[Rfam]
RNA sequence: CAGUUAAAACGCUCGUAGUCGGAUUUUGGCGUGUGACUUGGGUCGUUCUCGCGGGCGCUCCCAGGUUUGUGCGCCUUUGUGGAGGGGGGUCUGGUGGUGCUUAAUUGGAUCGCCAGGCUGCCGCCACCGUUUACUGUGAAAAAAUUAGAGUGUUCAAAGCAGGCGAUUGCCCUGAAUACAUUAGCAUGGAAUAAUAGAAUAGGACCCGGUCCUAUUUUGUUGGUUUGUUUGAAUCGGGUAAUGAUUAAAAGGGACGGUUGGGGGCAUUCGUAUUCCGACGCUAGAGGUGAAAUUCUUGGAUUGUCGGAAGACGAACAGCUGCGAAAGCGUCUGCCAAGGACGUUUUCAUUGAUCAAGAACGAAAGUAAGGGGAUCGAAGACGAUCAGAUACCGUCGUAGUCUUUACUAUAAACGAUGAGGACUGGAGAUCGGAUAAGACUGAUUUAUGGCUUAUCCGGCAUCCUUCGAGAAAUCAAAGUGUUUGCUUUCUGGGGGGAGUAUGGUCGCAAGGCUGAAACUUAAAGGAAU
Numbered sequence: 001c002a003g004u005u006a007a008a009a010c011g012c013u014c015g016u017a018g019u020c021g022g023a024u025u026u027u028g029g030c031g032u033g034u035g036a037c038u039u040g041g042g043u044c045g046u047u048c049u050c051g052c053g054g055g056c057g058c059u060c061c062c063a064g065g066u067u068u069g070u071g072c073g074c075c076u077u078u079g080u081g082g083a084g085g086g087g088g089g090u091c092u093g094g095u096g097g098u099g100c101u102u103a104a105u106u107g108g109a110u111c112g113c114c115a116g117g118c119u120g121c122c123g124c125c126a127c128c129g130u131u132u133a134c135u136g137u138g139a140a141a142a143a144a145u146u147a148g149a150g151u152g153u154u155c156a157a158a159g160c161a162g163g164c165g166a167u168u169g170c171c172c173u174g175a176a177u178a179c180a181u182u183a184g185c186a187u188g189g190a191a192u193a194a195u196a197g198a199a200u201a202g203g204a205c206c207c208g209g210u211c212c213u214a215u216u217u218u219g220u221u222g223g224u225u226u227g228u229u230u231g232a233a234u235c236g237g238g239u240a241a242u243g244a245u246u247a248a249a250a251g252g253g254a255c256g257g258u259u260g261g262g263g264g265c266a267u268u269c270g271u272a273u274u275c276c277g278a279c280g281c282u283a284g285a286g287g288u289g290a291a292a293u294u295c296u297u298g299g300a301u302u303g304u305c306g307g308a309a310g311a312c313g314a315a316c317a318g319c320u321g322c323g324a325a326a327g328c329g330u331c332u333g334c335c336a337a338g339g340a341c342g343u344u345u346u347c348a349u350u351g352a353u354c355a356a357g358a359a360c361g362a363a364a365g366u367a368a369g370g371g372g373a374u375c376g377a378a379g380a381c382g383a384u385c386a387g388a389u390a391c392c393g394u395c396g397u398a399g400u401c402u403u404u405a406c407u408a409u410a411a412a413c414g415a416u417g418a419g420g421a422c423u424g425g426a427g428a429u430c431g432g433a434u435a436a437g438a439c440u441g442a443u444u445u446a447u448g449g450c451u452u453a454u455c456c457g458g459c460a461u462c463c464u465u466c467g468a469g470a471a472a473u474c475a476a477a478g479u480g481u482u483u484g485c486u487u488u489c490u491g492g493g494g495g496g497a498g499u500a501u502g503g504u505c506g507c508a509a510g511g512c513u514g515a516a517a518c519u520u521a522a523a524g525g526a527a528u
Base pairs, nucleotide, nucleotide: 001491002490003489009488011360013358014357018353019352020351251347252346253345254344255342256341258339259338263335264334265333266332269313270312273309274308275307276306277305278304279303280302284295285294286293321328322327365406366405367404368403369402370401375399379395380394381393382392417487418486419485421479422478424463425462426461429458430457431456432455433454434453435452436451437450439448467474468473493520494519495518502513503512504511505510

The family of this 528-nucleotide part of an RNA from Gracilariopsis chorda is "Eukaryotic small subunit ribosomal RNA". A reference for the family is Yusupov et al. (2001), "Crystal structure of the ribosome at 5.5 A resolution", Science. Rfam 15.1 lists 75,755 matches to the family in 2,556 species.